[Rfam]
The family of this 104-nucleotide RNA from Oribacterium sp. oral taxon 078 is "S10-Clostridia ribosomal protein leader".
The match comes from Rfam's covariance-model search (63 bits).
It is annotated as a cis-regulatory leader.
RNA sequence: GGAUAGCGUUGAAACGAGAGAUUGCUUUCCGGCGAAAUCCGCAUGGUAUAAGCCGUGGAAGAGAACUCCGUGGAGCGAAUGUCAAGUUAGAAAACUGACGGCAG
Numbered sequence: 001g002g003a004u005a006g007c008g009u010u011g012a013a014a015c016g017a018g019a020g021a022u023u024g025c026u027u028u029c030c031g032g033c034g035a036a037a038u039c040c041g042c043a044u045g046g047u048a049u050a051a052g053c054c055g056u057g058g059a060a061g062a063g064a065a066c067u068c069c070g071u072g073g074a075g076c077g078a079a080u081g082u083c084a085a086g087u088u089a090g091a092a093a094a095c096u097g098a099c100g101g102c103a104g
Base pairs, nucleotide, nucleotide: 014071015070016069018068019067020066025061026060027059028058029057080103081102082101083100086099087098088097089096